[Rfam]
RNA sequence: AAUAGAACUGUUGAAUUCAACCAGGUAGAUAAAUGAGAAAAUAUCUUUUGUCUGCAGAAGGCAGCGAUUUGACAUUAACAUGGAGGUCUCUGACUUGGACAGCUGGCUAAAACUGAUUGUUUCCCUCCAUACAAU
Numbered sequence: 001a002a003u004a005g006a007a008c009u010g011u012u013g014a015a016u017u018c019a020a021c022c023a024g025g026u027a028g029a030u031a032a033a034u035g036a037g038a039a040a041a042u043a044u045c046u047u048u049u050g051u052c053u054g055c056a057g058a059a060g061g062c063a064g065c066g067a068u069u070u071g072a073c074a075u076u077a078a079c080a081u082g083g084a085g086g087u088c089u090c091u092g093a094c095u096u097g098g099a100c101a102g103c104u105g106g107c108u109a110a111a112a113c114u115g116a117u118u119g120u121u122u123c124c125c126u127c128c129a130u131a132c133a134a135u
Base pairs, nucleotide, nucleotide: 004070005069006068008064009063010062011061025055026054027053028052029051030050035047036046037045082128083127084126085125086124090119092117094115097107